[Rfam]
RNA sequence: UGGGUCGGCCGGAGGCUGUCGCUGCGGAUUUGUGGAAACACGGGUACGCAGAGGAAAGUCCGGACACCUCAGGGCAGCGUGCCGUGCGCAAGCAUGGGGGCUGGAAGCGCAAGCGACCGGUCACGGAAAGUGUCACAGAAAACAUACCACCGGUGGGUGCCGCAAGGUUCCUGCCGGCCAGGGUGAAAAGGCGGGGUAAGAGCCCACCGCUCCGACUGUAAGGAAGGAGGCAGGACAAACCCCACGCGGUGCAAGACAUAACAGGAGAAACGGCCCGCCCUGGCCGCAAGUCCCGCUCCGGCGGGAUGGAUAACUCCGGGUAUUAGUCGCAUCGCCGCGCAAGCGGGACGCGUGUCCUCUGCUUCGGUGGAGGACGCUUCGAGAGAAAUGACCGCCACCUCCUGCCUCACGGUGGGAGGCACAGAAUCCGGCUUACACCGGCCGUCCCAAGUU
Numbered sequence: 001u002g003g004g005u006c007g008g009c010c011g012g013a014g015g016c017u018g019u020c021g022c023u024g025c026g027g028a029u030u031u032g033u034g035g036a037a038a039c040a041c042g043g044g045u046a047c048g049c050a051g052a053g054g055a056a057a058g059u060c061c062g063g064a065c066a067c068c069u070c071a072g073g074g075c076a077g078c079g080u081g082c083c084g085u086g087c088g089c090a091a092g093c094a095u096g097g098g099g100g101c102u103g104g105a106a107g108c109g110c111a112a113g114c115g116a117c118c119g120g121u122c123a124c125g126g127a128a129a130g131u132g133u134c135a136c137a138g139a140a141a142a143c144a145u146a147c148c149a150c151c152g153g154u155g156g157g158u159g160c161c162g163c164a165a166g167g168u169u170c171c172u173g174c175c176g177g178c179c180a181g182g183g184u185g186a187a188a189a190g191g192c193g194g195g196g197u198a199a200g201a202g203c204c205c206a207c208c209g210c211u212c213c214g215a216c217u218g219u220a221a222g223g224a225a226g227g228a229g230g231c232a233g234g235a236c237a238a239a240c241c242c243c244a245c246g247c248g249g250u251g252c253a254a255g256a257c258a259u260a261a262c263a264g265g266a267g268a269a270a271c272g273g274c275c276c277g278c279c280c281u282g283g284c285c286g287c288a289a290g291u292c293c294c295g296c297u298c299c300g301g302c303g304g305g306a307u308g309g310a311u312a313a314c315u316c317c318g319g320g321u322a323u324u325a326g327u328c329g330c331a332u333c334g335c336c337g338c339g340c341a342a343g344c345g346g347g348a349c350g351c352g353u354g355u356c357c358u359c360u361g362c363u364u365c366g367g368u369g370g371a372g373g374a375c376g377c378u379u380c381g382a383g384a385g386a387a388a389u390g391a392c393c394g395c396c397a398c399c400u401c402c403u404g405c406c407u408c409a410c411g412g413u414g415g416g417a418g419g420c421a422c423a424g425a426a427u428c429c430g431g432c433u434u435a436c437a438c439c440g441g442c443c444g445u446c447c448c449a450a451g452u453u
Base pairs, nucleotide, nucleotide: 001449002448003447004446006444007443008442009441010440011438014396015395016394018392019391020390022051023050024049025048026047028045029044030043031042032041033040056434057433058432060431061430062429063428064427065251066250067249068248077247078246079245080244081243082097083096084095085094086093098124099122100121101120102119103118104117125242126241130240131239132236133235134234147182148181150177151176152175153174154173155172156171157170190208191207193205194204195203209231210229211228212227213226216223217222255328256327257326258323264317265316266315267314
Rfam assigns this 453-nucleotide RNA from Roseimicrobium sp. ORNL1 to the family "Bacterial RNase P class A". The family's RNA type in Rfam is ribozyme. Rfam's curators write: Ribonuclease P (RNase P) is a ubiquitous endoribonuclease, found in archaea, bacteria and eukarya as well as chloroplasts and mitochondria. Its best characterised activity is the generation of mature 5'-ends of tRNAs by cleaving the 5'-leader elements of precursor-tRNAs. Cellular RNase Ps are ribonucleoproteins. RNA from bacterial RNase Ps retains its catalytic activity in the absence of the protein subunit, i.e. it is a ribozyme. Isolated eukaryotic and archaeal RNase P RNA has not been shown to retain its catalytic function, but is still essential for the catalytic activity of the holoenzyme. Although the archaeal and eukaryotic holoenzyme s have a much greater protein content than the bacterial ones, the RNA cores from all the three lineages are homologous -- helices corresponding to P1, P2, P3, P4, and P10/11 are common to all cellular RNase P RNAs. Yet, there is considerable sequence variation, particularly among the eukaryotic RNAs. Identified in Yersinia as Ysr151/RnpB. NCBI's taxonomy places the organism under Bacteria, Verrucomicrobiia, Verrucomicrobiales, Verrucomicrobiaceae, Roseimicrobium.